The family of this 135-nucleotide sequence from Microcebus murinus is "Small nucleolar RNA U109". For this family Rfam cites "A novel experimental approach for systematic identification of box H/ACA snoRNAs from eukaryotes" (Gu et al., Nucleic Acids Res, 2005). A search with the family's covariance model found it, with a score of 139 bits.

RNA sequence: AUCCAUGUGGAAAUGUCUGCUCCUCAUUCUUUUAGGAUCAGGAAUACAUUCAUAACAUGUUACAUUAAUAAAGGAGUUCUCAGGGCUGCCAACCUUAUAGUAGAGGUUGGGUGGUAGUGUAUUUCUUCUACAUAA
Number, nucleotide and partner (000 for none) at each position: 001a000002u000003c000004c059005a058006u057007g056008u055009g000010g000011a000012a000013a000014u000015g000016u042017c041018u040019g039020c000021u037022c036023c035024u000025c000026a000027u000028u000029c000030u000031u000032u000033u000034a000035g023036g022037a021038u000039c019040a018041g017042g016043a000044a000045u000046a000047c000048a000049u000050u000051c000052a000053u000054a000055a008056c007057a006058u005059g004060u000061u000062a000063c000064a000065u000066u000067a000068a000069u000070a000071a000072a000073g128074g127075a126076g125077u000078u000079c000080u000081c000082a000083g000084g000085g115086c114087u000088g000089c111090c109091a108092a107093c106094c105095u104096u103097a000098u000099a000100g000101u000102a000103g096104a095105g094106g093107u092108u091109g090110g000111g089112u000113g000114g086115u085116a000117g000118u000119g000120u000121a000122u000123u000124u000125c076126u075127u074128c073129u000130a000131c000132a000133u000134a000135a000